[Rfam]
RNA sequence: CCGGGUGCCGUUGGGCCCGGCAGGCCAGAGGGCGUCCGCUUUCUCGGACGCGCCUCGCAUCAUCGUUGCUCAAUGGAGGACUUUGAUAUGAGGA
Numbered sequence: 001c002c003g004g005g006u007g008c009c010g011u012u013g014g015g016c017c018c019g020g021c022a023g024g025c026c027a028g029a030g031g032g033c034g035u036c037c038g039c040u041u042u043c044u045c046g047g048a049c050g051c052g053c054c055u056c057g058c059a060u061c062a063u064c065g066u067u068g069c070u071c072a073a074u075g076g077a078g079g080a081c082u083u084u085g086a087u088a089u090g091a092g093g094a
Base pairs, nucleotide, nucleotide: 001020002019003018004017005016006015008014009013030053032051033050034049035048036047037046038045054092055091056090057089059087061085062084065081066080067079069078070077071076

A member of the RNA family "Repression of heat shock gene expression (ROSE) element" from Sphingomonas parva, 94 nucleotides long. The family's consensus secondary structure is taken from published work. From the family's description: This family represents a 5' UTR cis-regulatory element found in heat shock mRNAs and is known as the ROSE (repression of heat shock gene expression) element. The ROSE element is a negative regulator of heat shock gene expression. The secondary structure is thought to be regulated by temperature. The family's RNA type in Rfam is RNA thermoregulator. Gene Ontology terms of the family: regulation of translation and response to temperature stimulus. Lineage of the source: Bacteria > Pseudomonadati > Alphaproteobacteria > Sphingomonadales > Sphingomonas.